[Rfam]
RNA sequence: AACAGGGUAGCCGAAAACUGUAGAUAGAGUAGGUA
Numbered sequence: 001a002a003c004a005g006g007g008u009a010g011c012c013g014a015a016a017a018c019u020g021u022a023g024a025u026a027g028a029g030u031a032g033g034u035a
Base pairs, nucleotide, nucleotide: 002021003020004019005018010034011033012032
A member of the RNA family "DUF805b RNA" from Emticicia oligotrophica, 35 nucleotides long. Lineage of the source: Bacteria > Cytophagia > Leadbetterellaceae > Emticicia > Emticicia oligotrophica. By type it is a cis-regulatory element. Pairs were carried over by alignment from the consensus structure, which is taken from published work. Rfam's curators put it in the seed alignment. Clan: DUF805 clan.